[Rfam]
RNA sequence: UAAUAGAAUAGGUGACUCAAGGGUGGUCGGCAUCCAUCCCCAUAAGAAAGGGGGUGAUGCCGAUGACAGUAUACGAAGCGUUAAUGUUUGCAGUAGCAUUCGCAACAUUGGUGAUGGGCAUACUGUCAUUUAACCAAAAAAAAUAAUCCACCCUUGAGCUAAGGACUCAGGUGGAUUAUUCCCUCUGUCGUGCCGAUCCCCCUUGCAGGGAACCAUUCUAUUACCGACCGUAGAUGUUGACGCAUCUGCG
Numbered sequence: 001u002a003a004u005a006g007a008a009u010a011g012g013u014g015a016c017u018c019a020a021g022g023g024u025g026g027u028c029g030g031c032a033u034c035c036a037u038c039c040c041c042a043u044a045a046g047a048a049a050g051g052g053g054g055u056g057a058u059g060c061c062g063a064u065g066a067c068a069g070u071a072u073a074c075g076a077a078g079c080g081u082u083a084a085u086g087u088u089u090g091c092a093g094u095a096g097c098a099u100u101c102g103c104a105a106c107a108u109u110g111g112u113g114a115u116g117g118g119c120a121u122a123c124u125g126u127c128a129u130u131u132a133a134c135c136a137a138a139a140a141a142a143a144u145a146a147u148c149c150a151c152c153c154u155u156g157a158g159c160u161a162a163g164g165a166c167u168c169a170g171g172u173g174g175a176u177u178a179u180u181c182c183c184u185c186u187g188u189c190g191u192g193c194c195g196a197u198c199c200c201c202c203u204u205g206c207a208g209g210g211a212a213c214c215a216u217u218c219u220a221u222u223a224c225c226g227a228c229c230g231u232a233g234a235u236g237u238u239g240a241c242g243c244a245u246c247u248g249c250g
Stems, first nucleotide, its partner, number of pairs: 001223005007217003011213001013195001016158008025148003035056002038054004065127007080091001102119002168187003200210002229250009
Record summary:
A member of the RNA family "BsrG" from Thalassobacillus cyri, 250 nucleotides long. A search with the family's covariance model found it, with a score of 120 bits. The base pairs follow the family's consensus structure, which was predicted with WAR. A reference for the family is Jahn and Brantl (2013), "One antitoxin--two functions: SR4 controls toxin mRNA decay and translation", Nucleic Acids Res. By type it is a small RNA.